[Rfam]
RNA sequence: CUAAUGUUUCUUGCUCAAGUGAGUAUUCCAAUUUCCAACCACAGAGGCAUGCAAGUAUUGCACUGAUGAGGAUUAUUAAGGUUGAUUGAGAUGCUCACAUGAGCAAGCAGUGUUAG
Numbered sequence: 001c002u003a004a005u006g007u008u009u010c011u012u013g014c015u016c017a018a019g020u021g022a023g024u025a026u027u028c029c030a031a032u033u034u035c036c037a038a039c040c041a042c043a044g045a046g047g048c049a050u051g052c053a054a055g056u057a058u059u060g061c062a063c064u065g066a067u068g069a070g071g072a073u074u075a076u077u078a079a080g081g082u083u084g085a086u087u088g089a090g091a092u093g094c095u096c097a098c099a100u101g102a103g104c105a106a107g108c109a110g111u112g113u114u115a116g
Stems, first nucleotide, its partner, number of pairs: 004113005010107008019098009029088004
Shown here is a 116-nucleotide RNA sequence from Arachis hypogaea, a member of the family "MIR828 microRNA precursor family". A search with the family's covariance model found it, with a score of 76 bits. For this family Rfam cites "A diverse and evolutionarily fluid set of microRNAs in Arabidopsis thaliana" (Rajagopalan et al., Genes Dev, 2006).